RNA sequence: UAGGGGUAGGUUGUCUGUAUCACUGGUACUGAUGCAAUGGCUGCCCACAGUACCAGACAUGCCGCCUCCCUCCCCCUACA
Numbered sequence: 001u002a003g004g005g006g007u008a009g010g011u012u013g014u015c016u017g018u019a020u021c022a023c024u025g026g027u028a029c030u031g032a033u034g035c036a037a038u039g040g041c042u043g044c045c046c047a048c049a050g051u052a053c054c055a056g057a058c059a060u061g062c063c064g065c066c067u068c069c070c071u072c073c074c075c076c077u078a079c080a
Stems, first nucleotide, its partner, number of pairs: 001078005008071003013066001015064001017062004023056009